[Rfam]
RNA sequence: GUCCCUAACGACCAUGGCUGUAGACUGUUACCGUGGUGGCAGUUGCUAGAGUAACAAUCUAAAGCCACGGUUGCCAUGGAGAC
Numbered sequence: 001g002u003c004c005c006u007a008a009c010g011a012c013c014a015u016g017g018c019u020g021u022a023g024a025c026u027g028u029u030a031c032c033g034u035g036g037u038g039g040c041a042g043u044u045g046c047u048a049g050a051g052u053a054a055c056a057a058u059c060u061a062a063a064g065c066c067a068c069g070g071u072u073g074c075c076a077u078g079g080a081g082a083c
Base pairs, nucleotide, nucleotide: 012070013069015067016066017065018064023059024058026056027055028054029053030052031051